The family of this 132-nucleotide RNA from Castor canadensis is "Small nucleolar RNA SNORA58". The base pairs follow the family's consensus structure, which was predicted with PFOLD.
[Rfam]
RNA sequence: ACACAUAUCUAUUAGACCUUGCCUGACUCUGCUCAUGGCCAGGUAGGGGGCACAGUAUAUGCAAGAGUAAUUGGAGUUCAUGCCAGGUCUAACCAGCUUAAGUGAUUGUUCAAUUGAAACACCCCAAUGUUC
Numbered sequence: 001a002c003a004c005a006u007a008u009c010u011a012u013u014a015g016a017c018c019u020u021g022c023c024u025g026a027c028u029c030u031g032c033u034c035a036u037g038g039c040c041a042g043g044u045a046g047g048g049g050g051c052a053c054a055g056u057a058u059a060u061g062c063a064a065g066a067g068u069a070a071u072u073g074g075a076g077u078u079c080a081u082g083c084c085a086g087g088u089c090u091a092a093c094c095a096g097c098u099u100a101a102g103u104g105a106u107u108g109u110u111c112a113a114u115u116g117a118a119a120c121a122c123c124c125c126a127a128u129g130u131u132c
Stems, first nucleotide, its partner, number of pairs: 004061005017048009073125002076122001078121001081118001083116001093108001095106001

About the family: ACA52 is a member of the H/ACA class of snoRNA that guide the sites of modification of uridines to pseudouridines. The organism belongs to Castor, within Eukaryota. Its Rfam clan is "SNORA44 clan".